RNA sequence: CCCGAUGCGUGACCAUCGGUAGUCUAGAGCGGCGUGCGUUUCCGGCAACGGAGGGGUGCGAAGCCCGCUUGAAUAAGUCUCCCUUUUUGGUGCGCCAAGGCCGUGAGGUUUUGCGCAGAUUCUGGCAGCAGCAGGCUGGAUGAGAGG
Numbered sequence: 001c002c003c004g005a006u007g008c009g010u011g012a013c014c015a016u017c018g019g020u021a022g023u024c025u026a027g028a029g030c031g032g033c034g035u036g037c038g039u040u041u042c043c044g045g046c047a048a049c050g051g052a053g054g055g056g057u058g059c060g061a062a063g064c065c066c067g068c069u070u071g072a073a074u075a076a077g078u079c080u081c082c083c084u085u086u087u088u089g090g091u092g093c094g095c096c097a098a099g100g101c102c103g104u105g106a107g108g109u110u111u112u113g114c115g116c117a118g119a120u121u122c123u124g125g126c127a128g129c130a131g132c133a134g135g136c137u138g139g140a141u142g143a144g145a146g147g
Stems, first nucleotide, its partner, number of pairs: 002019006028069005033060005039054006082090002091117004101108002121140006
The record is a 147-nucleotide sequence from Arenimonas metalli, which matches "Group II catalytic intron D1-D4-7" in Rfam. For this family Rfam cites "Group II introns: structure and catalytic versatility of large natural ribozymes" (Lehmann and Schmidt, Crit Rev Biochem Mol Biol, 2003). Group II introns are found in rRNA, tRNA and mRNA of organelles in fungi, plants and protists, and also in mRNA in bacteria. The match comes from Rfam's covariance-model search (99 bits). The source organism's lineage runs through Bacteria, Pseudomonadota, Lysobacterales, Arenimonas and Arenimonas metalli. Gene Ontology term of the family: Group II intron splicing.